[Rfam]
MIR408 microRNA precursor family: a 149-nucleotide sequence from Glycine max. For this family Rfam cites "Novel and stress-regulated microRNAs and other small RNAs from Arabidopsis" (Sunkar and Zhu, Plant Cell, 2004). The organism belongs to Glycine subgen. Soja, within Eukaryota. It scores 92 bits against the family's covariance model.

Nucleotides: 149
Stems, first nucleotide, its partner, number of pairs: 018131002022127006029120006036113006045104007
Number, partner (000 for none) and nucleotide at each position: 001000a002000g003000u004000u005000a006000g007000a008000g009000a010000c011000a012000g013000g014000a015000c016000a017000a018131a019130g020000c021000a022127g023126g024125g025124g026123a027122a028000c029120a030119g031118g032117c033116a034115g035000a036113g037112c038111a039110u040109g041108g042000a043000u044000g045104g046103a047102g048101c049100u050099a051098u052000c053000a054000a055000c056000a057000c058000a059000a060000u061000a062000u063000u064000g065000u066000c067000a068000a069000g070000a071000a072000a073000c074000u075000g076000a077000g078000a079000g080000u081000g082000a083000g084000a085000g086000g087000a088000g089000a090000a091000a092000u093000a094000u095000g096000u097000u098051g099050u100049g101048g102047u103046u104045c105000u106000g107000c108041u109040c110039a111038u112037g113036c114000a115034c116033u117032g118031c119030c120029u121000c122027u123026u124025c125024c126023c127022u128000g129000g130019c131018u132000c133000u134000g135000u136000c137000u138000c139000c140000a141000u142000u143000u144000c145000u146000c147000c148000u149000u